[Rfam]
RNA sequence: GGGAUAUGAUGAGUGGUUGGCUCUCGCUAAAUUAUGCGAGAUGGGCGUCCGCCCCAAAGCCUGGUUACGACAAUCGGGCGUUCUCAUCUUAACCAAUCUGAUCCC
Numbered sequence: 001g002g003g004a005u006a007u008g009a010u011g012a013g014u015g016g017u018u019g020g021c022u023c024u025c026g027c028u029a030a031a032u033u034a035u036g037c038g039a040g041a042u043g044g045g046c047g048u049c050c051g052c053c054c055c056a057a058a059g060c061c062u063g064g065u066u067a068c069g070a071c072a073a074u075c076g077g078g079c080g081u082u083c084u085c086a087u088c089u090u091a092a093c094c095a096a097u098c099u100g101a102u103c104c105c
Base pairs, nucleotide, nucleotide: 001105002104003103004102014095015094016093017092018091023040024039025038026037027036043083044082045081046080047079048078049077062076063075064074065073
RNA: Small nucleolar RNA Z279/snoR105/snoR108
Organism: Morella rubra